[Rfam]
RNA sequence: UGGGUGCGAGAGCGUCAGCG
Numbered sequence: 001u002g003g004g005u006g007c008g009a010g011a012g013c014g015u016c017a018g019c020g
Stems, first nucleotide, its partner, number of pairs: 003016005
This 20-nucleotide sequence from Cladocopium goreaui belongs to the Rfam family "HIV-1 stem-loop 4 packaging signal". For this family Rfam cites "MS3D structural elucidation of the HIV-1 packaging signal" (Yu et al., Proc Natl Acad Sci U S A, 2008). The organism belongs to Cladocopium, within Eukaryota. The match comes from Rfam's covariance-model search (31 bits). The base pairs follow the family's consensus structure, which is taken from published work. Rfam classes the family as a cis-regulatory element.